[Rfam]
RNA sequence: UUUUUAGUCUAAGUAUGUCCCAUAUAUUGCUUGGGACAUACUUAGACUAAAA
Numbered sequence: 001u002u003u004u005u006a007g008u009c010u011a012a013g014u015a016u017g018u019c020c021c022a023u024a025u026a027u028u029g030c031u032u033g034g035g036a037c038a039u040a041c042u043u044a045g046a047c048u049a050a051a052a
Base pairs, nucleotide, nucleotide: 006048007047008046009045010044011043012042014040015039016038018036019035020034021033022031
Dot-bracket structure: .....(((((((.(((.(((((........).)))).))).)))))))....
About this RNA: This 52-nucleotide RNA from Neogale vison belongs to the Rfam family "mir-1302 microRNA precursor family". A search with the family's covariance model found it, with a score of 65 bits. Pairs were carried over by alignment from the consensus structure, which was predicted with WAR. Lineage of the source: Eukaryota > Craniata > Boreoeutheria > Mustelinae > Neogale.